[Rfam]
Nucleotides: 077
Stems, first nucleotide, its partner, number of pairs: 011066006018059002022055005028050004
Number, partner (000 for none) and nucleotide at each position: 001000c002000c003000u004000g005000u006000g007000g008000a009000c010000u011066u012065c013064c014063c015062u016061u017000u018059g019058u020000c021000a022055u023054c024053c025052u026051a027000u028050g029049c030048c031047u032000g033000a034000g035000g036000a037000u038000a039000u040000a041000u042000g043000a044000a045000g046000g047031g048030g049029g050028c051026u052025g053024g054023g055022a056000a057000g058019g059018c060000a061016a062015a063014g064013g065012g066011a067000c068000g069000u070000u071000c072000a073000a074000u075000u076000g077000u
The record is a 77-nucleotide RNA sequence from Ophiophagus hannah, which matches "mir-204 microRNA precursor family" in Rfam. The family's consensus secondary structure was predicted with RNAalifold. For this family Rfam cites "The developmental miRNA profiles of zebrafish as determined by small RNA cloning" (Chen et al., Genes Dev, 2005). The family has 60 seed sequences and 1,730 matches in Rfam 15.1. The organism belongs to Ophiophagus, within Eukaryota.